This 177-nucleotide RNA sequence from Brenneria rubrifaciens belongs to the Rfam family "SraG RNA".
Pairs were carried over by alignment from the consensus structure, which was predicted with PFOLD.
A search with the family's covariance model found it, with a score of 147 bits.
A reference for the family is Argaman et al. (2001), "Novel small RNA-encoding genes in the intergenic regions of Escherichia coli", Curr Biol.
The organism belongs to Brenneria, within Bacteria.
Rfam's curators write: This RNA was discovered in E. coli during a large scale screen. Evidence was found for specific cleavage of this RNA.
It is annotated as a small RNA.
Rfam links the family to the GO terms mRNA binding and sRNA-mediated gene silencing.
RNA sequence: CUUUACACUACAUCCUCACGACUAAUGACAACCCUUACCCUGCUCAUGCAGAUAAAGCCUCUCAUUAGCCGCGCGAACCUCUGUAAUGAAAGAUCAAUAAUUAAAACAACAUUACAUUACUCUGUUUUACGAGCGCUUCCUAUUCUAGAAGAAAGGGGCCAAAAGAGGCCCCUUCCU
Numbered sequence: 001c002u003u004u005a006c007a008c009u010a011c012a013u014c015c016u017c018a019c020g021a022c023u024a025a026u027g028a029c030a031a032c033c034c035u036u037a038c039c040c041u042g043c044u045c046a047u048g049c050a051g052a053u054a055a056a057g058c059c060u061c062u063c064a065u066u067a068g069c070c071g072c073g074c075g076a077a078c079c080u081c082u083g084u085a086a087u088g089a090a091a092g093a094u095c096a097a098u099a100a101u102u103a104a105a106a107c108a109a110c111a112u113u114a115c116a117u118u119a120c121u122c123u124g125u126u127u128u129a130c131g132a133g134c135g136c137u138u139c140c141u142a143u144u145c146u147a148g149a150a151g152a153a154a155g156g157g158g159c160c161a162a163a164a165g166a167g168g169c170c171c172c173u174u175c176c177u
Stems, first nucleotide, its partner, number of pairs: 001092004006088002010084003017075001019073002022068007155172006